This 46-nucleotide RNA sequence from Caldithrix abyssi belongs to the Rfam family "Acido-Lenti-1 RNA". The match comes from Rfam's covariance-model search (39 bits). By type it is a small RNA. The source organism's lineage runs through Bacteria, Pseudomonadati, Calditrichaceae, Caldithrix and Caldithrix abyssi.
RNA sequence: CCCGGCAGUGAACUGCCGGGCUAUUGUCAGAAAUCCCUCCGGGAUU
Numbered sequence: 001c002c003c004g005g006c007a008g009u010g011a012a013c014u015g016c017c018g019g020g021c022u023a024u025u026g027u028c029a030g031a032a033a034u035c036c037c038u039c040c041g042g043g044a045u046u
Base pairs, nucleotide, nucleotide: 001020002019003018004017005016006015007014008013033045034044035043036042037041